[Rfam]
RNA sequence: UCUCGCCCGUUGCGUGAUGGUUAAGGCCAUGACGCCUGUGCGACUUUUUAUCUGGUCCGUGCCGCUGGCUCACAAGGCCACCGCCAUGCGUACUCCGGAGACCGCGAGCACGUCGCUCGGCCGGUCCGGCGCAGUUGUCCGGCUGAGCAUUCGGCCGGGUGACGUGUAAAGCACGGAAUGACG
Numbered sequence: 001u002c003u004c005g006c007c008c009g010u011u012g013c014g015u016g017a018u019g020g021u022u023a024a025g026g027c028c029a030u031g032a033c034g035c036c037u038g039u040g041c042g043a044c045u046u047u048u049u050a051u052c053u054g055g056u057c058c059g060u061g062c063c064g065c066u067g068g069c070u071c072a073c074a075a076g077g078c079c080a081c082c083g084c085c086a087u088g089c090g091u092a093c094u095c096c097g098g099a100g101a102c103c104g105c106g107a108g109c110a111c112g113u114c115g116c117u118c119g120g121c122c123g124g125u126c127c128g129g130c131g132c133a134g135u136u137g138u139c140c141g142g143c144u145g146a147g148c149a150u151u152c153g154g155c156c157g158g159g160u161g162a163c164g165u166g167u168a169a170a171g172c173a174c175g176g177a178a179u180g181a182c183g
Base pairs, nucleotide, nucleotide: 004042005041006040012035013034014033015032017030018029019028020027021026057176058175059174060173061172062171063083064082066080067079068078069077070076087133088132089131090130091129096128097127098126099125102124103123105119106118107117108116109115135162136161138159139158140157141156142155143154144153145152146151